[Rfam]
This 178-nucleotide RNA from Caloramator australicus belongs to the Rfam family "Lysine riboswitch aptamer". The match comes from Rfam's covariance-model search (98 bits). Taxonomically the source falls in Caloramator australicus (Bacteria, Bacillati, Clostridia, Caloramator).
RNA sequence: GGCAUAAAUAGAGGUGCGGGUAAAAGGGUAGCUUAAGGGUGUUAAGGGAAGGAACUCCCGAUAUCUUAAGCAAAGGGUUUACUCGCCGAAAGGGUGUGUUGGUUCCUCAGCAUAUCCUUGGGGGUAGGGUGUAAGCUCUAUCACUGUCAUGGCUGUGCCAUGAAGCGCUAUUUAUGCA
Numbered sequence: 001g002g003c004a005u006a007a008a009u010a011g012a013g014g015u016g017c018g019g020g021u022a023a024a025a026g027g028g029u030a031g032c033u034u035a036a037g038g039g040u041g042u043u044a045a046g047g048g049a050a051g052g053a054a055c056u057c058c059c060g061a062u063a064u065c066u067u068a069a070g071c072a073a074a075g076g077g078u079u080u081a082c083u084c085g086c087c088g089a090a091a092g093g094g095u096g097u098g099u100u101g102g103u104u105c106c107u108c109a110g111c112a113u114a115u116c117c118u119u120g121g122g123g124g125u126a127g128g129g130u131g132u133a134a135g136c137u138c139u140a141u142c143a144c145u146g147u148c149a150u151g152g153c154u155g156u157g158c159c160a161u162g163a164a165g166c167g168c169u170a171u172u173u174a175u176g177c178a
Base pairs, nucleotide, nucleotide: 006173007172008171009170010169011168016086017085018084019083020082021081022080023079024078031071032070033069034068035067036066037065038064090119091118092117093116094115095114096113097112098111099110100109101108120145121144123142124141125140126139127138128137129136130135147163148162149161150160151159152158153157